[Rfam]
RNA: miR-430 microRNA precursor family
RNA sequence: AAUAUUUUGCUAACAGAAGCAUUGACUUGGUUCUUUAAUGCAGUAAGUGCUUCUUGUUAGUGUAAUCUCG
Dot-bracket structure: ...(((.((((.(((((((((((.(((..............))).))))))))).)).)))).)))....